A member of the RNA family "Small nucleolar RNA snoR104" from Zea mays, 118 nucleotides long. Taxonomically the source falls in Zea (Eukaryota, Viridiplantae, Embryophyta, Tracheophyta).
[Rfam]
RNA sequence: AGGAAGCUGUUAGAGUUAACGUUCCUACCUGAUGUCAUCUUCCUAGAUUGAAUCUGUCAUUUUUGUGCUUGCUGAACUUUUAGUUUGUUCUGCUGGCCUUAGCAGGCAGUAUAUCAGU
Numbered sequence: 001a002g003g004a005a006g007c008u009g010u011u012a013g014a015g016u017u018a019a020c021g022u023u024c025c026u027a028c029c030u031g032a033u034g035u036c037a038u039c040u041u042c043c044u045a046g047a048u049u050g051a052a053u054c055u056g057u058c059a060u061u062u063u064u065g066u067g068c069u070u071g072c073u074g075a076a077c078u079u080u081u082a083g084u085u086u087g088u089u090c091u092g093c094u095g096g097c098c099u100u101a102g103c104a105g106g107c108a109g110u111a112u113a114u115c116a117g118u
Stems, first nucleotide, its partner, number of pairs: 001030003005026001006024001008021003055111003067097003071093002074090001076088002
Rfam classes the family as an H/ACA-box small nucleolar RNA. The match comes from Rfam's covariance-model search (56 bits). A reference for the family is Marker et al. (2002), "Experimental RNomics: identification of 140 candidates for small non-messenger RNAs in the plant Arabidopsis thaliana", Curr Biol.